RNA sequence: GGUUAAUAGUUAUAUGUACCGAAGACAGUAGGUGGCUUGCCUUAAUUUCCUACCGAGGACAAUAUUGAGAAUUUGUCAAUAGUCCCUCUAUGUCUACGGUGGCAUGGAGUUUUUUAUUGUUUACA
Numbered sequence: 001g002g003u004u005a006a007u008a009g010u011u012a013u014a015u016g017u018a019c020c021g022a023a024g025a026c027a028g029u030a031g032g033u034g035g036c037u038u039g040c041c042u043u044a045a046u047u048u049c050c051u052a053c054c055g056a057g058g059a060c061a062a063u064a065u066u067g068a069g070a071a072u073u074u075g076u077c078a079a080u081a082g083u084c085c086c087u088c089u090a091u092g093u094c095u096a097c098g099g100u101g102g103c104a105u106g107g108a109g110u111u112u113u114u115u116a117u118u119g120u121u122u123a124c125a
Stems, first nucleotide, its partner, number of pairs: 028053005034041002086109009
Dot-bracket structure: ...........................(((((.((....)).......)))))................................(((((((((......)))))))))................
RNA: Ribosomal protein L10 leader
Organism: Vagococcus entomophilus